[Rfam]
RNA: Small nucleolar RNA SNORA28
Organism: Marmota marmota
RNA sequence: AAGCAACACUCUAUGACAGAUUACUGAAACUGUCUGAUACAAUUUGAGCCUGCUAUAGCAAGAAAGUGUAACCUAUUCCAGUGUUCUCUCUUCCAUGAGACAAGCUGUUAUAUAGGCUUAAGCAGU
Numbered sequence: 001a002a003g004c005a006a007c008a009c010u011c012u013a014u015g016a017c018a019g020a021u022u023a024c025u026g027a028a029a030c031u032g033u034c035u036g037a038u039a040c041a042a043u044u045u046g047a048g049c050c051u052g053c054u055a056u057a058g059c060a061a062g063a064a065a066g067u068g069u070a071a072c073c074u075a076u077u078c079c080a081g082u083g084u085u086c087u088c089u090c091u092u093c094c095a096u097g098a099g100a101c102a103a104g105c106u107g108u109u110a111u112a113u114a115g116g117c118u119u120a121a122g123c124a125g126u
Stems, first nucleotide, its partner, number of pairs: 009048003012041001014039002017036005064119004069114002074112003079107004087100004